[Rfam]
Nucleotides: 220
Stems, first nucleotide, its partner, number of pairs: 010035005017029002021189001023187002037090004043085001044083003047079002049074004054069006110212001112211006131205001133203003137164003142158002144155003170199005176193004
Number, partner (000 for none) and nucleotide at each position: 001000a002000g003000a004000g005000u006000c007000g008000u009000a010035c011034a012033g013032g014031a015000a016000a017029g018028g019000a020000a021189u022000a023187g024186c025000a026000a027000a028018c029017c030000a031014u032013c033012c034011u035010g036000g037090c038089c039088c040087c041000g042000a043085g044083c045082c046081a047079u048078g049074c050073g051072a052071g053000g054069g055068c056067g057066g058065u059064c060000g061000a062000g063000a064059g065058g066057c067056u068055g069054c070000a071052c072051u073050u074049g075000a076000a077000g078048c079047g080000u081046u082045g083044g084000a085043c086000a087040g088039g089038g090037g091000u092000a093000u094000c095000u096000g097000u098000a099000g100000g101000c102000u103000g104000g105000g106000u107000a108000u109000a110212g111000a112211g113210c114209u115208c116207c117206g118000a119000a120000a121000u122000c123000g124000c125000c126000c127000g128000u129000u130000g131205u132000g133203g134202g135201g136000a137164g138163c139162u140000g141000a142158c143157g144155g145154c146153g147000u148000c149000g150000g151000g152000c153146u154145g155144u156000a157143c158142g159000g160000a161000a162139g163138g164137c165000a166000a167000c168000a169000a170199g171198g172197u173196g174195g175000a176193c177192c178191g179190c180000g181000a182000u183000a184000g185000u186024g187023c188000g189021a190179g191178u192177g193176g194000g195174c196173u197172a198171c199170c200000a201135c202134c203133c204000g205131a206117c207116g208115g209114a210113g211112u212110c213000g214000c215000a216000g217000a218000c219000c220000c
Rfam assigns this 220-nucleotide RNA sequence to the family "Group II catalytic intron D1-D4-6". The literature on the family includes a 2001 paper in Trends Genet by Bonen and Vogel, "The ins and outs of group II introns".